Overview: The family of this 252-nucleotide RNA from Trifolium subterraneum is "MIR2655 microRNA precursor family". Gene Ontology terms of the family: miRNA-mediated post-transcriptional gene silencing and RISC complex. A search with the family's covariance model found it, with a score of 128 bits. Lineage of the source: Eukaryota > Streptophyta > Mesangiospermae > fabids > Trifolium.
[Rfam]
RNA sequence: CCCUUAUCUUUUAAAAGUUUCAAGUUGGUCCCUUAUCUUUAUUUUAGGUUUCAAGUUGGUCCCUUCCGUCAAUAUUUUAACUAUUUCCGUUAAAUUUGGACACGUGACAAACUAAUUUGGACACGUGGCACACUUGGACAAAUGACACGUGUCCAAUUUUAAUGGCAACAGUAAACAAAUUGACGGGAGGGACCAACUUGAAACCUAAAAUAAAGAUAAGGGACCAACUUGAAACCUUUAAAAGAUAAAGAC
Numbered sequence: 001c002c003c004u005u006a007u008c009u010u011u012u013a014a015a016a017g018u019u020u021c022a023a024g025u026u027g028g029u030c031c032c033u034u035a036u037c038u039u040u041a042u043u044u045u046a047g048g049u050u051u052c053a054a055g056u057u058g059g060u061c062c063c064u065u066c067c068g069u070c071a072a073u074a075u076u077u078u079a080a081c082u083a084u085u086u087c088c089g090u091u092a093a094a095u096u097u098g099g100a101c102a103c104g105u106g107a108c109a110a111a112c113u114a115a116u117u118u119g120g121a122c123a124c125g126u127g128g129c130a131c132a133c134u135u136g137g138a139c140a141a142a143u144g145a146c147a148c149g150u151g152u153c154c155a156a157u158u159u160u161a162a163u164g165g166c167a168a169c170a171g172u173a174a175a176c177a178a179a180u181u182g183a184c185g186g187g188a189g190g191g192a193c194c195a196a197c198u199u200g201a202a203a204c205c206u207a208a209a210a211u212a213a214a215g216a217u218a219a220g221g222g223a224c225c226a227a228c229u230u231g232a233a234a235c236c237u238u239u240a241a242a243a244g245a246u247a248a249a250g251a252c
Stems, first nucleotide, its partner, number of pairs: 002250001004248005023229003027225003031221013045207003